The family of this 86-nucleotide sequence is "DUF3800-VII RNA".
[Rfam]
Nucleotides: 086
Base pairs, nucleotide, nucleotide: 001081002080003079004078005077006076007075011073013072014071015070016069023067025065026064027063028043029042030041031040032039033038046055047054048053
Number, partner (000 for none) and nucleotide at each position: 001081g002080a003079c004078a005077g006076u007075c008000a009000a010000g011073c012000g013072c014071a015070g016069g017000a018000a019000g020000u021000a022000g023067u024000a025065g026064a027063g028043g029042c030041c031040g032039c033038c034000g035000c036000a037000a038033g039032g040031u041030g042029g043028c044000a045000g046055c047054c048053c049000g050000a051000a052000a053048g054047g055046g056000u057000g058000g059000g060000a061000u062000c063027c064026u065025c066000g067023a068000a069016c070015c071014u072013g073011g074000g075007g076006g077005c078004u079003g080002u081001c082000a083000c084000c085000a086000a